Rfam assigns this 120-nucleotide sequence from Glycine max to the family "MIR1520 microRNA precursor family". The family is grouped with related families in Rfam's "MIR1520 microRNA precursor clan". NCBI's taxonomy places the organism under Eukaryota, Streptophytina, Spermatophyta, Pentapetalae, Glycine subgen. Soja. Pairs were carried over by alignment from the consensus structure, which was predicted with RNAalifold. Its family is annotated with RISC complex and miRNA-mediated post-transcriptional gene silencing in the Gene Ontology.
RNA sequence: UUUUUAUUGGAUGAUGAUUGUCACGUGUCAUAUUCUAAUUAGAUGUCAACUCCAUGAAAAAUGAGAUGCAUUGUUGUUUUCAUUGACCAAUCAGAACAUGACACAUGACAAACAUUAUCC
Numbered sequence: 001u002u003u004u005u006a007u008u009g010g011a012u013g014a015u016g017a018u019u020g021u022c023a024c025g026u027g028u029c030a031u032a033u034u035c036u037a038a039u040u041a042g043a044u045g046u047c048a049a050c051u052c053c054a055u056g057a058a059a060a061a062u063g064a065g066a067u068g069c070a071u072u073g074u075u076g077u078u079u080u081c082a083u084u085g086a087c088c089a090a091u092c093a094g095a096a097c098a099u100g101a102c103a104c105a106u107g108a109c110a111a112a113c114a115u116u117a118u119c120c
Stems, first nucleotide, its partner, number of pairs: 020109004025104002029100003033096004038091003